Source information:
This 68-nucleotide RNA sequence from Nocardia sp. CS682 belongs to the Rfam family "ASdes TB sRNA".

RNA sequence: AGCUCGACCGGGUCCACCGCCCUGGUCACCAUGAGGAAGUUGCGGAUCAUGAUCUCGUGGCGGUUCUC
Numbered sequence: 001a002g003c004u005c006g007a008c009c010g011g012g013u014c015c016a017c018c019g020c021c022c023u024g025g026u027c028a029c030c031a032u033g034a035g036g037a038a039g040u041u042g043c044g045g046a047u048c049a050u051g052a053u054c055u056c057g058u059g060g061c062g063g064u065u066c067u068c
Stems, first nucleotide, its partner, number of pairs: 004063003008059001011030003016026003035056002038053001040052003044048001
Dot-bracket structure: ...(((.(..(((..(((.....))).)))....((.(.(((.(...).)))).))..).))).....
It scores 61 bits against the family's covariance model. It is annotated as a small RNA. The organism belongs to Nocardia, within Bacteria.